The family of this 152-nucleotide RNA sequence from Marinibacterium profundimaris is "Ruegeria cis2 sRNA".
It is annotated as a small RNA.
The match comes from Rfam's covariance-model search (120 bits).
[Rfam]
Nucleotides: 152
Stems, first nucleotide, its partner, number of pairs: 002034003007029002012024003036056001038054002040051002063152005069081004085146009097133002099130003102126002106122002109118003
Number, partner (000 for none) and nucleotide at each position: 001000u002034u003033c004032g005000a006000a007029u008028u009000g010000u011000g012024c013023g014022g015000a016000a017000a018000g019000u020000a021000a022014u023013u024012g025000a026000u027000g028008a029007a030000g031000g032004c033003g034002a035000a036056a037000c038054c039053g040051c041050g042000c043000g044000a045000c046000u047000g048000g049000u050041c051040g052000a053039u054038g055000a056036u057000g058000u059000g060000g061000a062000a063152c064151a065150g066149c067148g068000g069081g070080u071079u072078c073000c074000a075000g076000u077000c078072g079071a080070a081069c082000a083000u084000c085146g086145c087144c088143a089142g090141c091140a092139u093138g094000a095000a096000g097133c098132c099130c100129g101128g102126c103125a104000u105000c106122g107121u108000g109118u110117u111116g112000g113000c114000c115000a116111c117110g118109a119000a120000c121107a122106u123000c124000u125103u126102g127000c128101c129100c130099g131000a132098g133097g134000c135000g136000a137000u138093c139092a140091u141090g142089u143088u144087g145086g146085c147000c148067c149066g150065c151064u152063g